[Rfam]
RNA sequence: UAACGUUUGUGAUCUUAACCGUAGACAGCAGGAACCCUUCGGGGUGUAACGUAUAUCAUCCUGCCGAGGUUAGAGAAAAGUGGUAUUGGUAUGCCCUUUCGCAGUCUACGGUUUGGAUCGCGGAAGGGUUUUUUGUUGUGAAA
Numbered sequence: 001u002a003a004c005g006u007u008u009g010u011g012a013u014c015u016u017a018a019c020c021g022u023a024g025a026c027a028g029c030a031g032g033a034a035c036c037c038u039u040c041g042g043g044g045u046g047u048a049a050c051g052u053a054u055a056u057c058a059u060c061c062u063g064c065c066g067a068g069g070u071u072a073g074a075g076a077a078a079a080g081u082g083g084u085a086u087u088g089g090u091a092u093g094c095c096c097u098u099u100c101g102c103a104g105u106c107u108a109c110g111g112u113u114u115g116g117a118u119c120g121c122g123g124a125a126g127g128g129u130u131u132u133u134u135g136u137u138g139u140g141a142a143a
Base pairs, nucleotide, nucleotide: 028064029063030062031061032060033059034045035044036043094128095127096126097125098124099123100122101121102120